[Rfam]
RNA sequence: CUGUCGUGCAUUGUAGUUGCAUUGCAUGUGUCUCAGCGGAGUGCAAUGUAUCUGCAAUGCAACACAG
Dot-bracket structure: ((((.(((((((((((..(.(((((((.............))))))).)..)))))))))).)))))